The family of this 414-nucleotide RNA from Rhodococcus sp. AD45 is "Bacterial RNase P class A".
Taxonomically the source falls in Rhodococcus (Bacteria, Bacillati, Actinomycetota, Actinomycetes).
The match comes from Rfam's covariance-model search (283 bits).
RNA sequence: CGAGUUGGCCGGGCGGCCGCGGAUCAGGGAACCAGCGCGUAGUGUGCACAGGCCCUGAGUCGAGGAAAGUCCGGACUCCACAGAGCAGGGCGGUUGUUAACGGCAACCCGAGGCAACUCGCGGGACAGUGCCACAGAAAACAGACCGCCUGCCUUUCGGGGCAGGUAAGGGUGAAACGGUGCGGUAAGAGCGCACCAGCACCCCGGGUGACCGGGGUGGCUAGGUAAACCCCGCCCGGAGCAAGGUUGAAGGUCGCAUCGCGUGCGGUGCGGCUGCGCAAGUGUUCGAGGGCUGCUCGCCCGAGCUUGCGGGUGAACCGCGUGAGGCACCCGGCGACGGUGUGUCCAGAUGGAUGGUCGCCACUCGUCACUUCGGUGUCGAGGACAGGAUCCGGCUUAUACGCCAACUCGUUCG
Numbered sequence: 001c002g003a004g005u006u007g008g009c010c011g012g013g014c015g016g017c018c019g020c021g022g023a024u025c026a027g028g029g030a031a032c033c034a035g036c037g038c039g040u041a042g043u044g045u046g047c048a049c050a051g052g053c054c055c056u057g058a059g060u061c062g063a064g065g066a067a068a069g070u071c072c073g074g075a076c077u078c079c080a081c082a083g084a085g086c087a088g089g090g091c092g093g094u095u096g097u098u099a100a101c102g103g104c105a106a107c108c109c110g111a112g113g114c115a116a117c118u119c120g121c122g123g124g125a126c127a128g129u130g131c132c133a134c135a136g137a138a139a140a141c142a143g144a145c146c147g148c149c150u151g152c153c154u155u156u157c158g159g160g161g162c163a164g165g166u167a168a169g170g171g172u173g174a175a176a177c178g179g180u181g182c183g184g185u186a187a188g189a190g191c192g193c194a195c196c197a198g199c200a201c202c203c204c205g206g207g208u209g210a211c212c213g214g215g216g217u218g219g220c221u222a223g224g225u226a227a228a229c230c231c232c233g234c235c236c237g238g239a240g241c242a243a244g245g246u247u248g249a250a251g252g253u254c255g256c257a258u259c260g261c262g263u264g265c266g267g268u269g270c271g272g273c274u275g276c277g278c279a280a281g282u283g284u285u286c287g288a289g290g291g292c293u294g295c296u297c298g299c300c301c302g303a304g305c306u307u308g309c310g311g312g313u314g315a316a317c318c319g320c321g322u323g324a325g326g327c328a329c330c331c332g333g334c335g336a337c338g339g340u341g342u343g344u345c346c347a348g349a350u351g352g353a354u355g356g357u358c359g360c361c362a363c364u365c366g367u368c369a370c371u372u373c374g375g376u377g378u379c380g381a382g383g384a385c386a387g388g389a390u391c392c393g394g395c396u397u398a399u400a401c402g403c404c405a406a407c408u409c410g411u412u413c414g
Base pairs, nucleotide, nucleotide: 001410002409003408004407005406006405007404008403009402011399012361013360014359015358016357017356018355020062021061022060024058025057026056027055028054067397068396069395071394072393073392074391075390076240077239078238079237083297084296085295086294088236089235090234091233092232093107094106095105096104097103108122109120110119111118112117123231124230128229129228130225131224132223145170146169147166148165149164150163151162152161153160154159178196179195180194181193182192183191198220199218200217201216202215203214204213205212206211244318245317246316247315277309278308279307280306281305282304289301290300291299292298325345326344327343328342329341330339331338332337